[Rfam]
RNA sequence: CCCAGGACUACACCCUGGGCUAAGUUAUUACGCCCUUUCAGGGCU
Numbered sequence: 001c002c003c004a005g006g007a008c009u010a011c012a013c014c015c016u017g018g019g020c021u022a023a024g025u026u027a028u029u030a031c032g033c034c035c036u037u038u039c040a041g042g043g044c045u
Base pairs, nucleotide, nucleotide: 001019002018003017004016005015006014032044033043034042035041036040
Rfam assigns this 45-nucleotide RNA from Adhaeribacter aerolatus to the family "Acido-Lenti-1 RNA". It scores 42 bits against the family's covariance model. The source organism's lineage runs through Bacteria, Pseudomonadati, Bacteroidota, Cytophagia and Adhaeribacter. The family has 87 seed sequences and 2,607 matches in Rfam 15.1.